Source information:
This 117-nucleotide RNA sequence from Acidithiobacillus ferrooxidans belongs to the Rfam family "ALIL pseudoknot". On this family, see Mazauric et al., J Biol Chem 2008: "Apical loop-internal loop RNA pseudoknots: a new type of stimulator of -1 translational frameshifting in bacteria". NCBI's taxonomy places the organism under Bacteria, Pseudomonadati, Pseudomonadota, Acidithiobacillaceae, Acidithiobacillus ferrooxidans. The family's consensus secondary structure is taken from published work.

RNA sequence: UGCGUUUUUUGCCCAGGCGGAGCUCGACCGCCGUCUGAAGUCAUGAACACCUUUGUCGAUACGCAUCGUGAUGUUUUUGGGGUCGAGCCGAUCUGCCGUGUCUUGCAGAUCGCCCCG
Numbered sequence: 001u002g003c004g005u006u007u008u009u010u011g012c013c014c015a016g017g018c019g020g021a022g023c024u025c026g027a028c029c030g031c032c033g034u035c036u037g038a039a040g041u042c043a044u045g046a047a048c049a050c051c052u053u054u055g056u057c058g059a060u061a062c063g064c065a066u067c068g069u070g071a072u073g074u075u076u077u078u079g080g081g082g083u084c085g086a087g088c089c090g091a092u093c094u095g096c097c098g099u100g101u102c103u104u105g106c107a108g109a110u111c112g113c114c115c116c117g
Stems, first nucleotide, its partner, number of pairs: 016032005078117005089112002092109005098103001